[Rfam]
RNA: Small nucleolar RNA SNORA29
RNA sequence: UGUCCUGUGUUAGUACCACCCCCUGUCACUAAUCAGUGGGUGUGGCUAUGCUAACAGGACAGAGGAAGUGUAUCGGGGUCUGAAGAGGCUGCAGCAUCUGUCCUGCAGUCUCUAUAUGAACUGAUAUGACAUGAACCA
Numbered sequence: 001u002g003u004c005c006u007g008u009g010u011u012a013g014u015a016c017c018a019c020c021c022c023c024u025g026u027c028a029c030u031a032a033u034c035a036g037u038g039g040g041u042g043u044g045g046c047u048a049u050g051c052u053a054a055c056a057g058g059a060c061a062g063a064g065g066a067a068g069u070g071u072a073u074c075g076g077g078g079u080c081u082g083a084a085g086a087g088g089c090u091g092c093a094g095c096a097u098c099u100g101u102c103c104u105g106c107a108g109u110c111u112c113u114a115u116a117u118g119a120a121c122u123g124a125u126a127u128g129a130c131a132u133g134a135a136c137c138a
Stems, first nucleotide, its partner, number of pairs: 004058004016045004072125004091112001